[Rfam]
The record is a 189-nucleotide RNA from Paramaledivibacter caminithermalis, which matches "Lysine riboswitch aptamer" in Rfam. Taxonomically the source falls in Paramaledivibacter caminithermalis (Bacteria, Bacillati, Bacillota, Clostridia). Riboswitches are metabolite binding domains within certain messenger RNAs that serve as precision sensors for their corresponding targets. Allosteric rearrangement of mRNA structure is mediated by ligand binding, and this results in modulation of gene expression. This family includes riboswitches that sense lysine in a number of genes involved in lysine metabolism, including lysC. The base pairs follow the family's consensus structure, which is taken from published work. A search with the family's covariance model found it, with a score of 110 bits.

RNA sequence: UGUAAAUUAAGAGGAUGCAGUUAUAAUUAGUACAUUAACUUAGAUAGAGGGAAGUCGCAGGUUAAUGGAAAGGUGUAACUGCCGAAGUGUAUUACUUUUCCCUAAGGUAAUGUGCUGGGACUAUACUGAAUAAGUAUGGUACUGUCUAAGGUUGAUUGCCCAAUCUUCCUAAGGUGAGCUAAUUUACGC
Number, nucleotide and partner (000 for none) at each position: 001u000002g000003u000004a000005a000006a184007u000008u182009a000010a180011g179012a000013g000014g000015a000016u000017g082018c081019a080020g079021u078022u077023a076024u075025a074026a000027u000028u000029a000030g000031u000032a000033c067034a066035u065036u064037a063038a062039c061040u060041u000042a000043g000044a000045u000046a000047g000048a000049g000050g000051g000052a000053a000054g000055u000056c000057g000058c000059a000060g040061g039062u038063u037064a036065a035066u034067g033068g000069a000070a000071a000072g000073g000074u025075g024076u023077a022078a021079c020080u019081g018082c017083c000084g000085a000086a116087g115088u114089g113090u112091a111092u110093u109094a108095c107096u106097u105098u000099u000100c000101c000102c000103u000104a000105a097106g096107g095108u094109a093110a092111u091112g090113u089114g088115c087116u086117g143118g142119g000120a140121c139122u138123a137124u136125a135126c134127u133128g000129a000130a000131u000132a000133a127134g126135u125136a124137u123138g122139g121140u120141a000142c118143u117144g000145u174146c173147u172148a000149a170150g169151g168152u000153u000154g000155a000156u000157u000158g000159c000160c000161c000162a000163a000164u000165c000166u000167u000168c151169c150170u149171a000172a147173g146174g145175u000176g000177a000178g000179c011180u010181a000182a008183u000184u006185u000186a000187c000188g000189c000